[Rfam]
RNA sequence: CAACUACCAAACCUUGUCUCUACCUCCACGUGGUGACUGUUGGGAGCUUUUUCUUAUCGAAAAGCUGCCGACGGAGAAGG
Number, nucleotide and partner (000 for none) at each position: 001c000002a000003a000004c000005u000006a000007c000008c000009a000010a000011a000012c000013c080014u079015u078016g000017u076018c000019u074020c073021u000022a034023c033024c032025u000026c000027c000028a000029c000030g000031u000032g024033g023034u022035g000036a000037c000038u000039g000040u000041u000042g000043g000044g000045a066046g065047c064048u063049u062050u061051u060052u000053c059054u000055u000056a000057u000058c000059g053060a051061a050062a049063a048064g047065c046066u045067g000068c000069c000070g000071a000072c000073g020074g019075a000076g017077a000078a015079g014080g013
RNA: drz-agam-1 ribozyme